[Rfam]
RNA sequence: GUUGCGUUAGGGAUUGAUGCGGCAUCCUUUUUUUUAAAGCUAAAACCAUACCUAGCUUAGAACUAAAAUUUAAAAGAUAGCUACGUCGCUUGCUCCUCGCUAUGACGUAAAAAAAAGAUAUAGCGGAAAGCCCGACCCUUG
Number, nucleotide and partner (000 for none) at each position: 001g000002u000003u000004g000005c000006g000007u000008u000009a000010g133011g132012g131013a000014u129015u128016g000017a000018u000019g124020c123021g000022g000023c000024a119025u118026c117027c000028u000029u000030u114031u113032u112033u111034u110035u109036a108037a000038a000039g000040c000041u000042a000043a000044a000045a000046c000047c000048a000049u000050a000051c000052c000053u000054a000055g000056c000057u000058u000059a000060g000061a000062a000063c000064u000065a000066a000067a000068a000069u000070u000071u000072a000073a000074a000075a000076g000077a000078u000079a000080g000081c000082u000083a000084c000085g000086u000087c000088g000089c000090u000091u000092g000093c000094u000095c000096c000097u000098c000099g000100c000101u000102a000103u000104g000105a000106c000107g000108u036109a035110a034111a033112a032113a031114a030115a000116a000117g026118a025119u024120a000121u000122a000123g020124c019125g000126g000127a000128a015129a014130g000131c012132c011133c010134g000135a000136c000137c000138c000139u000140u000141g000
RNA: Flavo-1 RNA